[Rfam]
This 153-nucleotide RNA sequence from Aspergillus bertholletiae belongs to the Rfam family "A. fumigatus sRNA Afu_254". The source organism's lineage runs through Eukaryota, Fungi, leotiomyceta, Eurotiomycetidae and Aspergillus subgen. Circumdati. For this family Rfam cites "Small ncRNA transcriptome analysis from Aspergillus fumigatus suggests a novel mechanism for regulation of protein synthesis" (Jochl et al., Nucleic Acids Res, 2008). Rfam 15.1 lists 185 matches to the family in 142 species.
RNA sequence: AUACAAGUCUAUUUUACUACUUCCAUUCCUUCGAACGAUCUAGUUCAUACCAAUCCCUUCACAGCCAUGUCUCCCUGCAACUGCAACUGCUGCUCCGGUGACUGCAACUCUUGCUCCUGCAGUGAAUGCAAGGUAUGCACCCCCCUACUAGCC
Numbered sequence: 001a002u003a004c005a006a007g008u009c010u011a012u013u014u015u016a017c018u019a020c021u022u023c024c025a026u027u028c029c030u031u032c033g034a035a036c037g038a039u040c041u042a043g044u045u046c047a048u049a050c051c052a053a054u055c056c057c058u059u060c061a062c063a064g065c066c067a068u069g070u071c072u073c074c075c076u077g078c079a080a081c082u083g084c085a086a087c088u089g090c091u092g093c094u095c096c097g098g099u100g101a102c103u104g105c106a107a108c109u110c111u112u113g114c115u116c117c118u119g120c121a122g123u124g125a126a127u128g129c130a131a132g133g134u135a136u137g138c139a140c141c142c143c144c145c146u147a148c149u150a151g152c153c
Stems, first nucleotide, its partner, number of pairs: 076100003083093003104129003113120002